[Rfam]
RNA sequence: GUCAGGUUUCAAGAUAGCCCCCGUUCUGUUGUCAGGUUUACGCCUCUCAACGUGCGGGGUUUUUCU
Numbered sequence: 001g002u003c004a005g006g007u008u009u010c011a012a013g014a015u016a017g018c019c020c021c022c023g024u025u026c027u028g029u030u031g032u033c034a035g036g037u038u039u040a041c042g043c044c045u046c047u048c049a050a051c052g053u054g055c056g057g058g059g060u061u062u063u064u065c066u
Base pairs, nucleotide, nucleotide: 016062017061019059020058021057022056023055024054027052028051029050030049031048034045035044036043
Rfam assigns this 66-nucleotide RNA from Kluyvera genomosp. 3 to the family "rdlD antitoxin". A search with the family's covariance model found it, with a score of 69 bits.